[Rfam]
RNA sequence: AUCUUUGCGCUUGGGGCAAUGACGCAGCUAGUGAGGUUCUAACUGAGACGCGUCUAUUGCUGGUUGAAAACUAUUUCCAAACCCCCUCUUCGGCCAUUGCUUGACUUUGGCUGUCGAGAAUUUUUGGAAGGCCUCCUUUUUCUGGGU
Numbered sequence: 001a002u003c004u005u006u007g008c009g010c011u012u013g014g015g016g017c018a019a020u021g022a023c024g025c026a027g028c029u030a031g032u033g034a035g036g037u038u039c040u041a042a043c044u045g046a047g048a049c050g051c052g053u054c055u056a057u058u059g060c061u062g063g064u065u066g067a068a069a070a071c072u073a074u075u076u077c078c079a080a081a082c083c084c085c086c087u088c089u090u091c092g093g094c095c096a097u098u099g100c101u102u103g104a105c106u107u108u109g110g111c112u113g114u115c116g117a118g119a120a121u122u123u124u125u126g127g128a129a130g131g132c133c134u135c136c137u138u139u140u141u142c143u144g145g146g147u
Base pairs, nucleotide, nucleotide: 021054022053023052024051025050027049029047035044036043037042086118087117088116091113092112093111094110095109096108099105131147132146133145134144
Shown here is a 147-nucleotide RNA sequence from Salvia splendens, a member of the family "U4 spliceosomal RNA". The literature on the family includes a 1997 paper in Nucleic Acids Res by Zwieb, "The uRNA database". The organism belongs to core Calosphace, within Eukaryota. U4 small nuclear RNA (U4 snRNA) is a component of the major U2-dependent spliceosome. The match comes from Rfam's covariance-model search (99 bits).